Rfam assigns this 74-nucleotide sequence from Eisenbergiella massiliensis to the family "Fluoride riboswitch aptamer (crcB RNA motif)".
It scores 48 bits against the family's covariance model.
Gene Ontology terms of the family: response to fluoride and positive regulation of gene expression.
RNA sequence: AUAAGGUCCGGGAAUGAAGUUCUCCCAUGGCUAUUGCCAAAACCGCUGAUAAAGCUGAUGACUUCUGUGAUUUU
Numbered sequence: 001a002u003a004a005g006g007u008c009c010g011g012g013a014a015u016g017a018a019g020u021u022c023u024c025c026c027a028u029g030g031c032u033a034u035u036g037c038c039a040a041a042a043c044c045g046c047u048g049a050u051a052a053a054g055c056u057g058a059u060g061a062c063u064u065c066u067g068u069g070a071u072u073u074u
Stems, first nucleotide, its partner, number of pairs: 010026004016065006045055003

NCBI's taxonomy places the organism under Bacteria, Bacillota, Clostridia, Lachnospirales, Eisenbergiella.